The family of this 85-nucleotide RNA from Fischerella thermalis is "Fluoride riboswitch aptamer (crcB RNA motif)". Pairs were carried over by alignment from the consensus structure, which is taken from published work.

RNA sequence: AAUAAAAAAGGCGAUGGAACUCGCCAUAAUCGCCUUCUGGUGAUAUUUAAUACUUAAUCAAAAGGCUGAUGGCUCCUACUUCUCC
Dot-bracket structure: .........((((..[[[.[[))))......((((...........................))))....]].]]].........